[Rfam]
RNA sequence: CUAUGGCUUUAUUUUGUCAUGGCGAAGGGAG
Numbered sequence: 001c002u003a004u005g006g007c008u009u010u011a012u013u014u015u016g017u018c019a020u021g022g023c024g025a026a027g028g029g030a031g
Stems, first nucleotide, its partner, number of pairs: 001022007
Dot-bracket structure: (((((((........))))))).........

Source information:
L31-Firmicutes ribosomal protein leader: a 31-nucleotide RNA. The literature on the family includes a 2020 paper in BMC Microbiol by Eckert and Weinberg, "Discovery of 20 novel ribosomal leader candidates in bacteria and archaea". The family is grouped with related families in Rfam's "Ribosomal Protein L31 Leader clan". Rfam's curators put it in the seed alignment. Pairs were carried over by alignment from the consensus structure, which is taken from published work.